[Rfam]
RNA sequence: UGGCGGGGGAGCACCACAACGCGUGGAGCCUGCGGUUUAAUUGGAUUCAACGCCGGACACCUCACCGGGGGCGACGGCAGGAUGAUGGCCAGGUUGAUGACCUUGCCUGACGAGCCGAGAGGAGGUGCAUGGCCGCCGUCAGCUCGUACCGUGAGGCGUCCUGUUAAGUCAGGCAACGAGCGAGACCCGCGCCCCUAGUUGCCAGCGGGUCCCGUAAGGGACGCCGGGCACACUAGGGGGACCGCCAGCGAUAAGCUGGAGGAAGGUGCGGGCGACGGUAGGUCCGUAUGCCCCGAAACCCCCGGGCUACACGCGGGCUACAAUGGCCGGGACAAUGGGUACCGACCCCGAAAGGGGGAGGUAAUCCCAUAAACCCGGCCGUAGUUCGGAUCGAGGGCUGCAACUCGCCCUCGUGAAGCUGGAAUGCGUAGUAAUCGCGGGUCACUAUCCCGCGGUGAAUACGUCCCUGCUCCUUGCACACACCGCCCGUCACGCCACCCAAACGGGGUUCGGAUGAGGCCAUGGCCUCUGGCCAUGGUCGAAUCCGGGCCCCGUGAGGAGGGCGAAGUCGUAACAAGG
Numbered sequence: 001u002g003g004c005g006g007g008g009g010a011g012c013a014c015c016a017c018a019a020c021g022c023g024u025g026g027a028g029c030c031u032g033c034g035g036u037u038u039a040a041u042u043g044g045a046u047u048c049a050a051c052g053c054c055g056g057a058c059a060c061c062u063c064a065c066c067g068g069g070g071g072c073g074a075c076g077g078c079a080g081g082a083u084g085a086u087g088g089c090c091a092g093g094u095u096g097a098u099g100a101c102c103u104u105g106c107c108u109g110a111c112g113a114g115c116c117g118a119g120a121g122g123a124g125g126u127g128c129a130u131g132g133c134c135g136c137c138g139u140c141a142g143c144u145c146g147u148a149c150c151g152u153g154a155g156g157c158g159u160c161c162u163g164u165u166a167a168g169u170c171a172g173g174c175a176a177c178g179a180g181c182g183a184g185a186c187c188c189g190c191g192c193c194c195c196u197a198g199u200u201g202c203c204a205g206c207g208g209g210u211c212c213c214g215u216a217a218g219g220g221a222c223g224c225c226g227g228g229c230a231c232a233c234u235a236g237g238g239g240g241a242c243c244g245c246c247a248g249c250g251a252u253a254a255g256c257u258g259g260a261g262g263a264a265g266g267u268g269c270g271g272g273c274g275a276c277g278g279u280a281g282g283u284c285c286g287u288a289u290g291c292c293c294c295g296a297a298a299c300c301c302c303c304g305g306g307c308u309a310c311a312c313g314c315g316g317g318c319u320a321c322a323a324u325g326g327c328c329g330g331g332a333c334a335a336u337g338g339g340u341a342c343c344g345a346c347c348c349c350g351a352a353a354g355g356g357g358g359a360g361g362u363a364a365u366c367c368c369a370u371a372a373a374c375c376c377g378g379c380c381g382u383a384g385u386u387c388g389g390a391u392c393g394a395g396g397g398c399u400g401c402a403a404c405u406c407g408c409c410c411u412c413g414u415g416a417a418g419c420u421g422g423a424a425u426g427c428g429u430a431g432u433a434a435u436c437g438c439g440g441g442u443c444a445c446u447a448u449c450c451c452g453c454g455g456u457g458a459a460u461a462c463g464u465c466c467c468u469g470c471u472c473c474u475u476g477c478a479c480a481c482a483c484c485g486c487c488c489g490u491c492a493c494g495c496c497a498c499c500c501a502a503a504c505g506g507g508g509u510u511c512g513g514a515u516g517a518g519g520c521c522a523u524g525g526c527c528u529c530u531g532g533c534c535a536u537g538g539u540c541g542a543a544u545c546c547g548g549g550c551c552c553c554g555u556g557a558g559g560a561g562g563g564c565g566a567a568g569u570c571g572u573a574a575c576a577a578g579g
Stems, first nucleotide, its partner, number of pairs: 001480002003477003007474007016464002020428005025321001027319008035310002041056004065305007075117004080111001087107003091103003121294002124292004130288002132283003135279004142181006149156002160173004187271004192239007202228002206226003209222004242262002245259005325380007337368003342361002346357004387418001392413007434456008483578001485575001488571002491568001493565004499559002503555013518540010